[Rfam]
RNA sequence: AUGAACUCGGCGCGAGAGUGUAUGGGCACAUACUACCGAUGGGGCAACGUGUAAGCUUCCUCAGCUGGAACGGAAUCUCUCAGGUAUCCAUAGCGUCGAAGGAUG
Numbered sequence: 001a002u003g004a005a006c007u008c009g010g011c012g013c014g015a016g017a018g019u020g021u022a023u024g025g026g027c028a029c030a031u032a033c034u035a036c037c038g039a040u041g042g043g044g045c046a047a048c049g050u051g052u053a054a055g056c057u058u059c060c061u062c063a064g065c066u067g068g069a070a071c072g073g074a075a076u077c078u079c080u081c082a083g084g085u086a087u088c089c090a091u092a093g094c095g096u097c098g099a100a101g102g103a104u105g
Stems, first nucleotide, its partner, number of pairs: 007099007020033004035085003038081002042079003048072002
This 105-nucleotide RNA sequence from Alicyclobacillus sp. SO9 belongs to the Rfam family "Glycine riboswitch aptamer". Pairs were carried over by alignment from the consensus structure. The literature on the family includes a 2004 paper in Science by Mandal et al., "A glycine-dependent riboswitch that uses cooperative binding to control gene expression".